[Rfam]
RNA sequence: AUUACUUCAUGAAGGUUUUCUAGGAAAGUUUUUAACAACUAGUAAAUCUGAUGCUCUGUAGU
Numbered sequence: 001a002u003u004a005c006u007u008c009a010u011g012a013a014g015g016u017u018u019u020c021u022a023g024g025a026a027a028g029u030u031u032u033u034a035a036c037a038a039c040u041a042g043u044a045a046a047u048c049u050g051a052u053g054c055u056c057u058g059u060a061g062u
Base pairs, nucleotide, nucleotide: 001062002061003060004059005058014048015047016046017045018044020042021041022040023039028036029035030034